[Rfam]
RNA sequence: AGCCGAAGUUUACACACAGGUGUAAACGGCAUUGCCAGCUUAGAGAAGAUGAGAAUGAGACUAGGGUAGUUGAGAUGAGUAGAGUUGAGCAGAGAUACGAUACUUCUAUUUAAUCAUACUGCCUAAAAGAGCAACCCUCUUUUAGGCUUAUUUC
Numbered sequence: 001a002g003c004c005g006a007a008g009u010u011u012a013c014a015c016a017c018a019g020g021u022g023u024a025a026a027c028g029g030c031a032u033u034g035c036c037a038g039c040u041u042a043g044a045g046a047a048g049a050u051g052a053g054a055a056u057g058a059g060a061c062u063a064g065g066g067u068a069g070u071u072g073a074g075a076u077g078a079g080u081a082g083a084g085u086u087g088a089g090c091a092g093a094g095a096u097a098c099g100a101u102a103c104u105u106c107u108a109u110u111u112a113a114u115c116a117u118a119c120u121g122c123c124u125a126a127a128a129g130a131g132c133a134a135c136c137c138u139c140u141u142u143u144a145g146g147c148u149u150a151u152u153u154c
Stems, first nucleotide, its partner, number of pairs: 002030003010025006064124006071118002074114001075111001077109001079103003

Background:
This 154-nucleotide sequence from Bacillus pumilus belongs to the Rfam family "Bacillus tryptophan operon leader". A reference for the family is Babitzke et al. (2003), "Role of RNA structure in transcription attenuation in Bacillus subtilis: the trpEDCFBA operon as a model system", Methods Enzymol. The sequence is in the family's curated seed alignment. Gene Ontology term of the family: regulation of gene expression.